The record is a 92-nucleotide RNA from Papaver nudicaule, which matches "Small nucleolar RNA Z152/R70/R12/" in Rfam.
RNA sequence: GUGGUGAUGAUGAGUUGAAACAUAUGGGAGUGUGUAUAGGGCAGUGGGAAAGACCUAAACAUCUAAAACGACUUCUCCUUCCACUGAGCUUU
Numbered sequence: 001g002u003g004g005u006g007a008u009g010a011u012g013a014g015u016u017g018a019a020a021c022a023u024a025u026g027g028g029a030g031u032g033u034g035u036a037u038a039g040g041g042c043a044g045u046g047g048g049a050a051a052g053a054c055c056u057a058a059a060c061a062u063c064u065a066a067a068a069c070g071a072c073u074u075c076u077c078c079u080u081c082c083a084c085u086g087a088g089c090u091u092u
Stems, first nucleotide, its partner, number of pairs: 001092001003090003
Dot-bracket structure: (.(((..................................................................................))).)
Overview
The family has 9 seed sequences and 604 matches in Rfam 15.1. Lineage of the source: Eukaryota > Viridiplantae > Spermatophyta > Papaveroideae > Papaver. On this family, see Barneche et al., J Mol Biol 2001: "Identification of 66 box C/D snoRNAs in Arabidopsis thaliana: extensive gene duplications generated multiple isoforms predicting new ribosomal RNA 2'-O-methylation sites". Its family is annotated with RNA processing and nucleolus in the Gene Ontology.